[Rfam]
RNA sequence: AAUUCAAUGAUUUCAACUUCACUGCUGACCAGCCACGCCUCAACGCCUCGGAGUGAUUGUCCCAGUCUCUGAUAGACAGCAUAUUCUAAUACACGA
Number, nucleotide and partner (000 for none) at each position: 001a000002a090003u089004u000005c000006a085007a084008u083009g082010a057011u056012u055013u000014c000015a000016a000017c053018u052019u051020c050021a000022c000023u000024g000025c000026u000027g000028a000029c000030c000031a000032g000033c000034c000035a000036c000037g000038c000039c000040u000041c000042a000043a000044c000045g000046c000047c000048u000049c000050g020051g019052a018053g017054u000055g012056a011057u010058u000059g000060u000061c000062c000063c071064a070065g069066u000067c000068u000069c065070u064071g063072a000073u000074a000075g000076a000077c000078a000079g000080c000081a000082u009083a008084u007085u006086c000087u000088a000089a003090u002091a000092c000093a000094c000095g000096a000
The family of this 96-nucleotide RNA sequence from Drosophila simulans is "Small nucleolar RNA snoM1". The family's consensus secondary structure was predicted with ILM. From the family's description: M1 is a member of the H/ACA class of snoRNAs which are thought to guide the sites of modification of uridines to pseudouridines. snoM1 seems to be found exclusively in Drosophila species. It is one of the family's seed sequences.